[Rfam]
RNA sequence: GGCCGAAUAGUGUAGAGGCUUAUCACGUCAGUCUUACACACUGAAGGUCCAGGGUUCGAUUCCCUGUUCGGUCA
Numbered sequence: 001g002g003c004c005g006a007a008u009a010g011u012g013u014a015g016a017g018g019c020u021u022a023u024c025a026c027g028u029c030a031g032u033c034u035u036a037c038a039c040a041c042u043g044a045a046g047g048u049c050c051a052g053g054g055u056u057c058g059a060u061u062c063c064c065u066g067u068u069c070g071g072u073c074a
Stems, first nucleotide, its partner, number of pairs: 001073007010026003028044005050066005
This 74-nucleotide RNA from Exserohilum turcicum belongs to the Rfam family "tRNA". The source organism's lineage runs through Eukaryota, Dothideomycetes, Pleosporomycetidae, Pleosporaceae and Exserohilum turcicum. It is annotated as a transfer RNA.